[Rfam]
A member of the RNA family "Mammalian CPEB3 ribozyme" from Parnassius apollo, 77 nucleotides long.

RNA sequence: CAUGUCAAAUAAAUUGUCAUUGUAGAAGCGUGCUCGUCGCGACCCCUGCCAGCUCUUUUCAGGGCUGCAAUUCUACA
Numbered sequence: 001c002a003u004g005u006c007a008a009a010u011a012a013a014u015u016g017u018c019a020u021u022g023u024a025g026a027a028g029c030g031u032g033c034u035c036g037u038c039g040c041g042a043c044c045c046c047u048g049c050c051a052g053c054u055c056u057u058u059u060c061a062g063g064g065c066u067g068c069a070a071u072u073c074u075a076c077a
Base pairs, nucleotide, nucleotide: 016043017042018041021077022076023075024074025073026072027071028040029039030038050067051066052065053064054063055062056061

Overview:
The base pairs follow the family's consensus structure, which is taken from published work. Rfam describes the family as follows. The mammalian CPEB3 ribozyme is a self cleaving RNA located in the second intron of the CPEB3 gene which belongs to a family of genes regulating messenger RNA polyadenylation. This ribozyme is highly conserved and found only in mammals. It scores 38 bits against the family's covariance model.